[Rfam]
This 46-nucleotide sequence belongs to the Rfam family "eL15-Euryarchaeota ribosomal protein leader".
Rfam classes the family as a cis-regulatory leader.
On this family, see Eckert and Weinberg, BMC Microbiol 2020: "Discovery of 20 novel ribosomal leader candidates in bacteria and archaea".
Rfam's curators put it in the seed alignment.
RNA sequence: GCGGACUUUGUCCGCUGGGAUGUAACCAUCAUGGUUGAACCGUAAA
Numbered sequence: 001g002c003g004g005a006c007u008u009u010g011u012c013c014g015c016u017g018g019g020a021u022g023u024a025a026c027c028a029u030c031a032u033g034g035u036u037g038a039a040c041c042g043u044a045a046a
Base pairs, nucleotide, nucleotide: 001015002014003013004012005011016042017041018040024036025035026034027033028032